leuA-Halobacteria RNA: a 53-nucleotide RNA sequence from Haladaptatus litoreus. Lineage of the source: Archaea > Methanobacteriati > Halobacteriales > Haladaptataceae > Haladaptatus. Rfam classes the family as a cis-regulatory element.
[Rfam]
RNA sequence: CCACUCUGAGGAUAGAGUAAGUCGCCUCCCGGCGACUGGUCGAGAAAUUCUCG
Numbered sequence: 001c002c003a004c005u006c007u008g009a010g011g012a013u014a015g016a017g018u019a020a021g022u023c024g025c026c027u028c029c030c031g032g033c034g035a036c037u038g039g040u041c042g043a044g045a046a047a048u049u050c051u052c053g
Base pairs, nucleotide, nucleotide: 020037021036022035023034024033025032026031